[Rfam]
RNA sequence: CGAUUGAGUAGAGGUUGCAACUUUUAUUAGUAAAACGCAUGAGAUAAAGAGAUAUCAUGGACUGCGUUUGAAAGGAAAAGUUGCCGAAAUAUGCUUUAACUCUCUUUUAAAGCAUAUUGGGGCUGUUAUCGAAUAGGUACAGCACUGUCACGUUUCUUGACCAAGAAAUGUGAGGAGCUAAUCUUCGG
Numbered sequence: 001c002g003a004u005u006g007a008g009u010a011g012a013g014g015u016u017g018c019a020a021c022u023u024u025u026a027u028u029a030g031u032a033a034a035a036c037g038c039a040u041g042a043g044a045u046a047a048a049g050a051g052a053u054a055u056c057a058u059g060g061a062c063u064g065c066g067u068u069u070g071a072a073a074g075g076a077a078a079a080g081u082u083g084c085c086g087a088a089a090u091a092u093g094c095u096u097u098a099a100c101u102c103u104c105u106u107u108u109a110a111a112g113c114a115u116a117u118u119g120g121g122g123c124u125g126u127u128a129u130c131g132a133a134u135a136g137g138u139a140c141a142g143c144a145c146u147g148u149c150a151c152g153u154u155u156c157u158u159g160a161c162c163a164a165g166a167a168a169u170g171u172g173a174g175g176a177g178c179u180a181a182u183c184u185u186c187g188g
Stems, first nucleotide, its partner, number of pairs: 006183002009180003017084009033069007088118012119146002122143005129136001148173009
Lysine riboswitch aptamer: a 188-nucleotide sequence from Mesobacillus foraminis. Lineage of the source: Bacteria > Bacillota > Caryophanales > Bacillaceae > Mesobacillus. From the family's description: Riboswitches are metabolite binding domains within certain messenger RNAs that serve as precision sensors for their corresponding targets.